[Rfam]
RNA sequence: CCUCCUUAGCGGGAGAGUGGCGUGGGGUCUGGUUUGGGUCUUGUGUCUCGUGGAAGGCGUGUGUGGCCCGCGUGUGUGCGUGUGUCUGUGUGUGAGUGGGCGCGUGUGGGGAGUGCCAGACGAGUGUAUGAGCCCGCCCCUGCGCCCCUCUCCCCACCUACACCUUGAUCUUAUUUGAUCGGGUCCGACCCCAGCCCCGCCGGGCCAACCCGAAAUGAAAUGAUCCCCUCCUGCGAAGCCCUCCGCGGCGCUGUGCAGCGAGGCCUGUUGGGCGGCGGCAACGCUGUGGUCCCCGAGGUCCCGGAGCUGGUCCGACGGGCCCGGCGCUCAGAAGUGAUGAAUUGAUCAGAUAGACGAGACCGGGCUUGUCCUGUGUCGCUGAUUAUCGAGGCGAUUCUGAUCUGA
Number, nucleotide and partner (000 for none) at each position: 001c000002c000003u000004c000005c000006u000007u000008a000009g000010c000011g000012g000013g000014a000015g000016a000017g000018u000019g000020g000021c000022g000023u000024g000025g000026g000027g000028u000029c000030u000031g000032g000033u000034u000035u000036g000037g000038g000039u000040c000041u000042u000043g145044u144045g143046u142047c063048u000049c061050g060051u059052g058053g000054a000055a000056g000057g000058c052059g051060u050061g049062u000063g047064u000065g000066g000067c000068c000069c000070g000071c000072g000073u000074g000075u000076g000077u000078g093079c000080g091081u090082g089083u088084g000085u000086c000087u000088g083089u082090g081091u080092g000093u078094g000095a000096g133097u132098g000099g000100g000101c000102g127103c126104g125105u124106g000107u122108g121109g000110g000111g000112a000113g000114u000115g000116c000117c000118a000119g000120a000121c108122g107123a000124g105125u104126g103127u102128a000129u000130g000131a000132g097133c096134c000135c000136g000137c000138c000139c000140c000141u000142g046143c045144g044145c043146c000147c000148c000149u000150c000151u000152c000153c000154c000155c000156a000157c000158c000159u000160a000161c000162a000163c000164c000165u000166u000167g000168a000169u000170c000171u000172u000173a000174u000175u220176u219177g000178a000179u213180c212181g211182g210183g000184u208185c000186c000187g205188a000189c000190c204191c203192c202193a000194g200195c199196c000197c000198c000199g195200c194201c000202g192203g191204g190205c187206c000207a000208a184209c000210c182211c181212g180213a179214a000215a000216u000217g000218a000219a176220a175221u000222g000223a000224u000225c000226c000227c000228c000229u000230c000231c000232u000233g000234c000235g000236a000237a000238g000239c000240c000241c000242u298243c297244c295245g294246c000247g292248g291249c000250g290251c289252u288253g000254u000255g287256c286257a000258g284259c283260g282261a000262g000263g279264c278265c277266u275267g000268u000269u000270g000271g000272g000273c000274g000275g266276c000277g265278g264279c263280a000281a000282c260283g259284c258285u000286g256287u255288g252289g251290u250291c248292c247293c000294c245295g244296a000297g243298g242299u000300c000301c000302c000303g000304g000305a000306g325307c324308u323309g322310g321311u319312c318313c317314g000315a000316c000317g313318g312319g311320c000321c310322c309323g308324g307325c306326g000327c000328u000329c404330a403331g402332a401333a000334g000335u000336g000337a000338u000339g397340a396341a395342u394343u393344g392345a000346u000347c000348a000349g000350a000351u000352a000353g000354a000355c000356g000357a000358g377359a376360c375361c000362g000363g372364g371365c000366u000367u000368g000369u000370c000371c364372u363373g000374u000375g360376u359377c358378g000379c000380u000381g000382a000383u000384u000385a000386u000387c000388g000389a000390g000391g000392c344393g343394a342395u341396u340397c339398u000399g000400a000401u332402c331403u330404g329405a000
Record summary:
Shown here is a 405-nucleotide sequence from Echinops telfairi, a member of the family "Small Cajal body-specific RNA 2". The family has 20 seed sequences and 612 matches in Rfam 15.1. The sequence is in the family's curated seed alignment. The family's RNA type in Rfam is small Cajal body RNA.